This 63-nucleotide sequence from Salipaludibacillus agaradhaerens belongs to the Rfam family "GP20-b RNA". NCBI's taxonomy places the organism under Bacteria, Bacillati, Bacillota, Bacilli, Salipaludibacillus.
RNA sequence: UUACUAUUUGUAGACGUUAAAGAACAAAAGUGGUCGAGGUCGUAACCUCGUAAAAAAAACGUA
Number, nucleotide and partner (000 for none) at each position: 001u016002u000003a000004c013005u000006a000007u000008u027009u026010g025011u024012a000013g004014a000015c000016g001017u000018u000019a000020a000021a000022g000023a000024a011025c010026a009027a008028a000029a000030g000031u000032g000033g000034u000035c050036g049037a048038g047039g000040u000041c000042g000043u000044a000045a000046c000047c038048u037049c036050g035051u000052a000053a000054a000055a000056a000057a000058a000059a000060c000061g000062u000063a000